[Rfam]
The record is a 142-nucleotide RNA sequence from Calypte anna, which matches "Small Cajal body specific RNA 8" in Rfam. scaRNAs are a specific class of small nuclear RNAs which localise to the Cajal bodies and guide the modification of RNA polymerase II transcribed spliceosomal RNAs U1, U2, U4, U5 and U12. U92 belong to the H/ACA box class of guide RNAs as it has the predicted hairpin-hinge-hairpin-tail structure, conserved H/ACA-box motifs and is found associated with GAR1. Its family is annotated with nucleolus, Cajal body and RNA processing in the Gene Ontology.
RNA sequence: UGGGAGGCUGAUACACAACAAGAGCUCAAUCUGCUCUGAGUGUCACAUGUUCUCCCUAGAGUAAAAUCUCCCUUUCAUCUCCCUUCUGAUGACCGGGACGAAUUGAGAGGAAUUGUAAGGGACAGAUAGGGGGCACACAACA
Numbered sequence: 001u002g003g004g005a006g007g008c009u010g011a012u013a014c015a016c017a018a019c020a021a022g023a024g025c026u027c028a029a030u031c032u033g034c035u036c037u038g039a040g041u042g043u044c045a046c047a048u049g050u051u052c053u054c055c056c057u058a059g060a061g062u063a064a065a066a067u068c069u070c071c072c073u074u075u076c077a078u079c080u081c082c083c084u085u086c087u088g089a090u091g092a093c094c095g096g097g098a099c100g101a102a103u104u105g106a107g108a109g110g111a112a113u114u115g116u117a118a119g120g121g122a123c124a125g126a127u128a129g130g131g132g133g134c135a136c137a138c139a140a141c142a
Base pairs, nucleotide, nucleotide: 002056003055004054005053006052007051015043016042017041022036023035024034025033080135082133083132084131085130093121094120098116099115100114101113